Selenocysteine transfer RNA: a 94-nucleotide RNA from Desulfarculus baarsii.
RNA sequence: GGAAGUGGAUAGCUCUCUGGUGGGGCUCCCGGACUUCAAAUCCGGUGUGGGGCAUGAGUAAUGUCUCGGGUGGGUUCGAUUCCCAUGCACUUCC
Number, nucleotide and partner (000 for none) at each position: 001g094002g093003a092004a091005g090006u089007g088008g000009a086010u000011a027012g026013c025014u000015c024016u023017c022018u000019g000020g000021u000022g017023g016024g015025g013026c012027u011028c000029c045030c044031g043032g042033a041034c000035u000036u000037c000038a000039a000040a000041u033042c032043c031044g030045g029046u000047g000048u068049g067050g066051g065052g064053c000054a000055u000056g000057a000058g000059u000060a000061a000062u000063g000064u052065c051066u050067c049068g048069g000070g000071u085072g084073g083074g082075u000076u000077c000078g000079a000080u000081u000082c074083c073084c072085a071086u009087g000088c007089a006090c005091u004092u003093c002094c001

Background:
A search with the family's covariance model found it, with a score of 73 bits. Gene Ontology term of the family: triplet codon-amino acid adaptor activity.